Sense overlapping transcript RNA 0042 (sot): a 165-nucleotide RNA from Halorubrum saccharovorum.

RNA sequence: AGAUAACUCAGAGUCCUCCGACGGGGGAUAUGAGUAACGGCUGGUUGGCACAGCCCGGAGUCUUCCUGUUCGACCGCGAGAGCGGACGGUUCACACCGAGAGAGCAGGGAGACUGUAAACCCUAAUAUCCCAACGCUCGGGAUUCCUCCGGCUUUAGCCGGAGGA
Numbered sequence: 001a002g003a004u005a006a007c008u009c010a011g012a013g014u015c016c017u018c019c020g021a022c023g024g025g026g027g028a029u030a031u032g033a034g035u036a037a038c039g040g041c042u043g044g045u046u047g048g049c050a051c052a053g054c055c056c057g058g059a060g061u062c063u064u065c066c067u068g069u070u071c072g073a074c075c076g077c078g079a080g081a082g083c084g085g086a087c088g089g090u091u092c093a094c095a096c097c098g099a100g101a102g103a104g105c106a107g108g109g110a111g112a113c114u115g116u117a118a119a120c121c122c123u124a125a126u127a128u129c130c131c132a133a134c135g136c137u138c139g140g141g142a143u144u145c146c147u148c149c150g151g152c153u154u155u156a157g158c159c160g161g162a163g164g165a
Stems, first nucleotide, its partner, number of pairs: 004037001007034004013029003017025003039055005059114005065108007084097002128142004133137001144165009
Dot-bracket structure: ...(..((((..(((.(((...))).))).))))..).(((((.......)))))...(((((.(((((((............((..........))....))))))).))))).............((((.(...).)))).(((((((((....)))))))))
A reference for the family is Gomes-Filho et al. (2015), "Sense overlapping transcripts in IS1341-type transposase genes are functional non-coding RNAs in archaea", RNA Biol. A search with the family's covariance model found it, with a score of 94 bits.